Shown here is a 111-nucleotide sequence from Dreissena polymorpha, a member of the family "Vault RNA".
RNA sequence: GGGCUGGCAUAGUCGAGUGGUUACUUCGAAAACAAAAAAUAAAAUAACAGUAUAAAAAUAAUUCUUGUGGGUUCGAUCCCCAUAGAUCCACUGACGCCAUUCAGCCCUUUU
Numbered sequence: 001g002g003g004c005u006g007g008c009a010u011a012g013u014c015g016a017g018u019g020g021u022u023a024c025u026u027c028g029a030a031a032a033c034a035a036a037a038a039a040u041a042a043a044a045u046a047a048c049a050g051u052a053u054a055a056a057a058a059u060a061a062u063u064c065u066u067g068u069g070g071g072u073u074c075g076a077u078c079c080c081c082a083u084a085g086a087u088c089c090a091c092u093g094a095c096g097c098c099a100u101u102c103a104g105c106c107c108u109u110u111u
Stems, first nucleotide, its partner, number of pairs: 002106006012095004017091004026076004
Lineage of the source: Eukaryota > Protostomia > Bivalvia > Autobranchia > Dreissena. By type it is a non-coding RNA gene.